[Rfam]
RNA: Small nucleolar RNA snoR97
Organism: Panicum virgatum
RNA sequence: GCUUUCUGAUUUGCGUGGAGGCUGAAAAACUCGAGAGUGUGUGUUGUCAUCAGCUUCGUAUCUUUUUUUCCUUACUGUGAGAUGGGAUUUAAAUAACAGCAUGAUAUUA
Numbered sequence: 001g002c003u004u005u006c007u008g009a010u011u012u013g014c015g016u017g018g019a020g021g022c023u024g025a026a027a028a029a030c031u032c033g034a035g036a037g038u039g040u041g042u043g044u045u046g047u048c049a050u051c052a053g054c055u056u057c058g059u060a061u062c063u064u065u066u067u068u069u070c071c072u073u074a075c076u077g078u079g080a081g082a083u084g085g086g087a088u089u090u091a092a093a094u095a096a097c098a099g100c101a102u103g104a105u106a107u108u109a
Stems, first nucleotide, its partner, number of pairs: 040103007052090002055087003059082001061080002